The record is an 88-nucleotide sequence from Cucurbita maxima, which matches "Small nucleolar RNA U54" in Rfam. Rfam describes the family as follows. U54 is a C/D box small nucleolar RNA, which acts as a methylation guide for 18S ribosomal RNA in plants. For this family Rfam cites "The high diversity of snoRNAs in plants: identification and comparative study of 120 snoRNA genes from Oryza sativa" (Chen et al., Nucleic Acids Res, 2003). NCBI's taxonomy places the organism under Eukaryota, Tracheophyta, Spermatophyta, Cucurbitales, Cucurbita. Clan: U54 clan. The family has 21 seed sequences and 614 matches in Rfam 15.1. Rfam links the family to the GO terms RNA processing and nucleolus.
RNA sequence: UGCUCUGUGAUUACAUGCCUUAUCGGGCAAUAUACGCUAUUCUGAAGUUGAAACUUCUGUAGAGAUCUACUGAAACGCAAUGAGAGCU
Numbered sequence: 001u002g003c004u005c006u007g008u009g010a011u012u013a014c015a016u017g018c019c020u021u022a023u024c025g026g027g028c029a030a031u032a033u034a035c036g037c038u039a040u041u042c043u044g045a046a047g048u049u050g051a052a053a054c055u056u057c058u059g060u061a062g063a064g065a066u067c068u069a070c071u072g073a074a075a076c077g078c079a080a081u082g083a084g085a086g087c088u
Stems, first nucleotide, its partner, number of pairs: 002087004